Shown here is a 151-nucleotide sequence from Kosakonia cowanii, a member of the family "Leucine operon leader". A search with the family's covariance model found it, with a score of 100 bits. Rfam describes the family as follows. At least 6 amino acid operons are known to be regulated by attenuation. In each a leader sequence of 150-200 bp is found upstream of the first gene in the operon. This leader sequence can assume two different secondary structures known as the terminator and the anti-terminator structure. In each case the leader also codes for very short peptide sequence that is rich in the end product amino acid of the operon. The terminator structure is recognised as a termination signal for RNA polymerase and the operon is not transcribed. This structure forms when the cell has an excess of the regulatory amino acid and ribosome movement over the leader transcript is not impeded. When there is a deficiency of the charged tRNA of the regulatory amino acid the ribosome translating the leader peptide stalls and the antiterminator structure can form. This allows RNA polymerase to transcribe the operon. In the Rfam alignment the consensus structure is of the terminator. The alternative consensus structure is the antiterminator structure.
RNA sequence: CGGGAGCAAGAUUCAUGAUUCGUCACGUUCGUUUCGCUGGUCUACUACUACUAAACGCAUCAACUGUGCGCGGUAGACCGGUGGACGACACUCAGAACUGAAUCGUCUUCCUGUUAAGACUAAGAACCCGCGCCUUGGCGCGGGUUUUUUU
Numbered sequence: 001c002g003g004g005a006g007c008a009a010g011a012u013u014c015a016u017g018a019u020u021c022g023u024c025a026c027g028u029u030c031g032u033u034u035c036g037c038u039g040g041u042c043u044a045c046u047a048c049u050a051c052u053a054a055a056c057g058c059a060u061c062a063a064c065u066g067u068g069c070g071c072g073g074u075a076g077a078c079c080g081g082u083g084g085a086c087g088a089c090a091c092u093c094a095g096a097a098c099u100g101a102a103u104c105g106u107c108u109u110c111c112u113g114u115u116a117a118g119a120c121u122a123a124g125a126a127c128c129c130g131c132g133c134c135u136u137g138g139c140g141c142g143g144g145u146u147u148u149u150u151u
Stems, first nucleotide, its partner, number of pairs: 004110001006108001008106001010104001012102004016097001026087008048076005056070004123148011